Shown here is an 89-nucleotide sequence from Hibiscus syriacus, a member of the family "small nucleolar RNA snoR114". It scores 64 bits against the family's covariance model. By type it is a C/D-box small nucleolar RNA. The base pairs follow the family's consensus structure, which was predicted with RNAalifold. The family has 24 seed sequences and 1,645 matches in Rfam 15.1. Taxonomically the source falls in Hibiscus (Eukaryota, Streptophyta, Euphyllophyta, Malvoideae).
[Rfam]
RNA sequence: AAGUUGUGAUGAAUUCUGCGCUUUCAGUGAAGAUAGGGUUUCCUCACCAUCGUCCGAUUUCCAGACGACAGAUCAGCGCCUCUGAACUU
Numbered sequence: 001a002a003g004u005u006g007u008g009a010u011g012a013a014u015u016c017u018g019c020g021c022u023u024u025c026a027g028u029g030a031a032g033a034u035a036g037g038g039u040u041u042c043c044u045c046a047c048c049a050u051c052g053u054c055c056g057a058u059u060u061c062c063a064g065a066c067g068a069c070a071g072a073u074c075a076g077c078g079c080c081u082c083u084g085a086a087c088u089u
Stems, first nucleotide, its partner, number of pairs: 001089004